[Rfam]
RNA sequence: AAUCCAUGGUGUGGACAGUCGCGCUGGAAAUCUCUGAAUCUAUGCCAGGCAUCUCUGAAAGAUUCUCCAGUUUCCUGAGUGAAUGUAGAGAUUUUUCUCCUCCAGUCU
Numbered sequence: 001a002a003u004c005c006a007u008g009g010u011g012u013g014g015a016c017a018g019u020c021g022c023g024c025u026g027g028a029a030a031u032c033u034c035u036g037a038a039u040c041u042a043u044g045c046c047a048g049g050c051a052u053c054u055c056u057g058a059a060a061g062a063u064u065c066u067c068c069a070g071u072u073u074c075c076u077g078a079g080u081g082a083a084u085g086u087a088g089a090g091a092u093u094u095u096u097c098u099c100c101u102c103c104a105g106u107c108u
Stems, first nucleotide, its partner, number of pairs: 001108001004105001006101001057074002060071001
Record summary
The record is a 108-nucleotide RNA sequence from Brassica carinata, which matches "Plant small nucleolar RNA R71" in Rfam. Gene Ontology terms of the family: nucleolus and RNA processing. A search with the family's covariance model found it, with a score of 53 bits. Rfam 15.1 lists 278,378 matches to the family in 216 species. The family's consensus secondary structure was predicted with PFOLD. For this family Rfam cites "Plant snoRNAs: functional evolution and new modes of gene expression" (Brown et al., Trends Plant Sci, 2003). By type it is a C/D-box small nucleolar RNA. The source organism's lineage runs through Eukaryota, Streptophytina, Euphyllophyta, Gunneridae and Brassica.